[Rfam]
RNA sequence: GAAAGAGGAGUGAGAAACUCCUCCGCCGAAUGACCAAGGGUUCCAGGGCCAGGCUAAUCCGCCCUGGGUAAGUCGGGACCUAAGGCGAGGCCGACAGGCGUAGUCGAUGGACAACGGGUUGAUAUUCCCGUACCGGCUUUGUCGCGCCCAUGCCGAGCCCGGUGAUGCUAAGCGCCCGAGCCUGGUUCGACCUUUCGGGGUUGUUCUGGGUGAGCGCGUGACCCGAUCCGGUAGUAGGCAAGCGAUGGGGUGACGCAGGAGGGUAGCUCUACGCGGCGAUGGUAGGCGAAAGCUGAUCCGCGGGCAAAGGUGUAGGACGAGACGUUGGCAAAUCCGCGUCUCAUGUGUCUGAGACCUGAUGCCGAGCCGAUUGAGGCGAAGUGAGUGAUCCCAUGCUGCCGAGAAAAACCUCUAGUGAGUGACAAGGCCGCCCGUACCCCAAACCGACACAGGUGGUCAGGUAGAGAAUACCAAGGCGAU
Numbered sequence: 001g002a003a004a005g006a007g008g009a010g011u012g013a014g015a016a017a018c019u020c021c022u023c024c025g026c027c028g029a030a031u032g033a034c035c036a037a038g039g040g041u042u043c044c045a046g047g048g049c050c051a052g053g054c055u056a057a058u059c060c061g062c063c064c065u066g067g068g069u070a071a072g073u074c075g076g077g078a079c080c081u082a083a084g085g086c087g088a089g090g091c092c093g094a095c096a097g098g099c100g101u102a103g104u105c106g107a108u109g110g111a112c113a114a115c116g117g118g119u120u121g122a123u124a125u126u127c128c129c130g131u132a133c134c135g136g137c138u139u140u141g142u143c144g145c146g147c148c149c150a151u152g153c154c155g156a157g158c159c160c161g162g163u164g165a166u167g168c169u170a171a172g173c174g175c176c177c178g179a180g181c182c183u184g185g186u187u188c189g190a191c192c193u194u195u196c197g198g199g200g201u202u203g204u205u206c207u208g209g210g211u212g213a214g215c216g217c218g219u220g221a222c223c224c225g226a227u228c229c230g231g232u233a234g235u236a237g238g239c240a241a242g243c244g245a246u247g248g249g250g251u252g253a254c255g256c257a258g259g260a261g262g263g264u265a266g267c268u269c270u271a272c273g274c275g276g277c278g279a280u281g282g283u284a285g286g287c288g289a290a291a292g293c294u295g296a297u298c299c300g301c302g303g304g305c306a307a308a309g310g311u312g313u314a315g316g317a318c319g320a321g322a323c324g325u326u327g328g329c330a331a332a333u334c335c336g337c338g339u340c341u342c343a344u345g346u347g348u349c350u351g352a353g354a355c356c357u358g359a360u361g362c363c364g365a366g367c368c369g370a371u372u373g374a375g376g377c378g379a380a381g382u383g384a385g386u387g388a389u390c391c392c393a394u395g396c397u398g399c400c401g402a403g404a405a406a407a408a409c410c411u412c413u414a415g416u417g418a419g420u421g422a423c424a425a426g427g428c429c430g431c432c433c434g435u436a437c438c439c440c441a442a443a444c445c446g447a448c449a450c451a452g453g454u455g456g457u458c459a460g461g462u463a464g465a466g467a468a469u470a471c472c473a474a475g476g477c478g479a480u
Stems, first nucleotide, its partner, number of pairs: 005023006024478004032458004038438002043067006052060002074434004079110002084105003088101001090099003114131005134430011242416002247412005255399004261392003266386004272302005304362002308357004315350003319342007327335002366377003444453002460472004